RNA sequence: GAGUUAUUGGUAGAUGCAAGGUUAAUUAUUAUGUUUAUUGCAUAUUAAGCAGCCGUAGCGAAAGCAAGUCUGAAAGGGCGAAUAGAGUAUCUAUCAUUAGACCCGAAGCCAAGUGAUCUAUGCCUGGACAGAGUGAAUCUCCUUUAAUCAGGGGAGGAGGCUCGAAGCGUCGACCGUUGAAAAGGUCUUGCAUGAGCUGGGUAUAGGGGUGAAAGGCCAAUCUAACUUGGUGAUAGCUGGUU
Numbered sequence: 001g002a003g004u005u006a007u008u009g010g011u012a013g014a015u016g017c018a019a020g021g022u023u024a025a026u027u028a029u030u031a032u033g034u035u036u037a038u039u040g041c042a043u044a045u046u047a048a049g050c051a052g053c054c055g056u057a058g059c060g061a062a063a064g065c066a067a068g069u070c071u072g073a074a075a076g077g078g079c080g081a082a083u084a085g086a087g088u089a090u091c092u093a094u095c096a097u098u099a100g101a102c103c104c105g106a107a108g109c110c111a112a113g114u115g116a117u118c119u120a121u122g123c124c125u126g127g128a129c130a131g132a133g134u135g136a137a138u139c140u141c142c143u144u145u146a147a148u149c150a151g152g153g154g155a156g157g158a159g160g161c162u163c164g165a166a167g168c169g170u171c172g173a174c175c176g177u178u179g180a181a182a183a184g185g186u187c188u189u190g191c192a193u194g195a196g197c198u199g200g201g202u203a204u205a206g207g208g209g210u211g212a213a214a215g216g217c218c219a220a221u222c223u224a225a226c227u228u229g230g231u232g233a234u235a236g237c238u239g240g241u242u
Stems, first nucleotide, its partner, number of pairs: 005099002008096010020054004026048003058065002068079004102240002105237001109230006118206010129194001131163004138155006167191003172187004208218003
A member of the RNA family "Bacterial large subunit ribosomal RNA" from Candidatus Endomicrobiellum trichonymphae, 242 nucleotides of a longer RNA.
The family's consensus secondary structure is taken from published work.